[Rfam]
RNA sequence: CGAUUAUUAAAACGAGUAUUCAUGCAAUUGCCCGAACCCACUCGGGCUUUUU
Numbered sequence: 001c002g003a004u005u006a007u008u009a010a011a012a013c014g015a016g017u018a019u020u021c022a023u024g025c026a027a028u029u030g031c032c033c034g035a036a037c038c039c040a041c042u043c044g045g046g047c048u049u050u051u052u
Base pairs, nucleotide, nucleotide: 014021015020030047031046032045033044034043035042

The family of this 52-nucleotide RNA sequence from Escherichia coli is "Anti stx2 sRNA".
A reference for the family is Tree et al. (2014), "Identification of bacteriophage-encoded anti-sRNAs in pathogenic Escherichia coli", Mol Cell.
Rfam's curators put it in the seed alignment.
Rfam's curators write: Increases expression of the ChuS heme oxygenase via destabilisation of FnrS sRNA.
The source organism's lineage runs through Bacteria, Pseudomonadati, Gammaproteobacteria, Enterobacteriaceae and Escherichia.
Rfam links the family to the GO term positive regulation of translation, ncRNA-mediated.
The family's RNA type in Rfam is small RNA.